[Rfam]
hya RNA: an 84-nucleotide RNA sequence from Lolliginicoccus lacisalsi.
RNA sequence: UACGUCACGCAAGUGGGCCGAGGGUCGACUCCGGUGACGCAGGGGCCUGUGGGCUUGCGCGUGCCCUGCCCCGGAAAGUGGCAA
Numbered sequence: 001u002a003c004g005u006c007a008c009g010c011a012a013g014u015g016g017g018c019c020g021a022g023g024g025u026c027g028a029c030u031c032c033g034g035u036g037a038c039g040c041a042g043g044g045g046c047c048u049g050u051g052g053g054c055u056u057g058c059g060c061g062u063g064c065c066c067u068g069c070c071c072c073g074g075a076a077a078g079u080g081g082c083a084a
Base pairs, nucleotide, nucleotide: 003039004038005037006036007035008034042072043071044070045069046068
Dot-bracket structure: ..((((((.........................))))))..(((((.....................)))))............
The organism belongs to Lolliginicoccus, within Bacteria. By type it is a cis-regulatory element.